[Rfam]
RNA sequence: GGAAGUUAAAAAACUGUUUCUUAAUUUUUAACUAAAAAAACUAAGAACUGGUUUUUAAAUAAAGAUUUUAAAAAUCAGUUCUUAACUUUUUUAUUUAAAAGUUAAGAAACAGUUUCUUAACUUCC
Numbered sequence: 001g002g003a004a005g006u007u008a009a010a011a012a013a014c015u016g017u018u019u020c021u022u023a024a025u026u027u028u029u030a031a032c033u034a035a036a037a038a039a040a041c042u043a044a045g046a047a048c049u050g051g052u053u054u055u056u057a058a059a060u061a062a063a064g065a066u067u068u069u070a071a072a073a074a075u076c077a078g079u080u081c082u083u084a085a086c087u088u089u090u091u092u093a094u095u096u097a098a099a100a101g102u103u104a105a106g107a108a109a110c111a112g113u114u115u116c117u118u119a120a121c122u123u124c125c
Stems, first nucleotide, its partner, number of pairs: 001125009011115021033093007042084006
The family of this 125-nucleotide sequence from Raphanus sativus is "MIR9563 microRNA precursor family". Lineage of the source: Eukaryota > Viridiplantae > Mesangiospermae > Brassicales > Raphanus. Rfam links the family to the GO terms miRNA-mediated post-transcriptional gene silencing and RISC complex.